RNA: Selenocysteine transfer RNA
RNA sequence: GCCUGGAUGACCCUCAGUGGUCUGGGGUGCAGGCUUCAAACCUGGACCUAUCUACUGACAGUGGUUCAGCUCCACAUUCCAGGU
Numbered sequence: 001g002c003c004u005g006g007a008u009g010a011c012c013c014u015c016a017g018u019g020g021u022c023u024g025g026g027g028u029g030c031a032g033g034c035u036u037c038a039a040a041c042c043u044g045g046a047c048c049u050a051u052c053u054a055c056u057g058a059c060a061g062u063g064g065u066u067c068a069g070c071u072c073c074a075c076a077u078u079c080c081a082g083g084u
Stems, first nucleotide, its partner, number of pairs: 001084007012027006028046001030044004061075004